[Rfam]
RNA sequence: GGGAUAUGAUGAGUGGUCAAUGCUCGCAUUGUAAUAUGUGGGAAGGGCGUUCCAGCCUAGCCUGGUUACGAUAAUUUGGGUGUCCUCAAUUUUUACCAAUUUUAUUCC
Number, nucleotide and partner (000 for none) at each position: 001g108002g107003g106004a105005u000006a000007u000008g000009a000010u000011g000012a000013g000014u098015g097016g096017u095018c000019a000020a000021u000022g000023c042024u041025c040026g039027c038028a000029u000030u000031g000032u000033a000034a000035u000036a000037u000038g027039u026040g025041g024042g023043a000044a086045g085046g084047g083048c082049g081050u080051u079052c000053c000054a000055g000056c000057c000058u000059a000060g000061c000062c000063u078064g077065g075066u074067u000068a000069c000070g000071a000072u000073a000074a066075u065076u000077u064078g063079g051080g050081u049082g048083u047084c046085c045086u044087c000088a000089a000090u000091u000092u000093u000094u000095a017096c016097c015098a014099a000100u000101u000102u000103u000104a000105u004106u003107c002108c001
RNA: Small nucleolar RNA Z279/snoR105/snoR108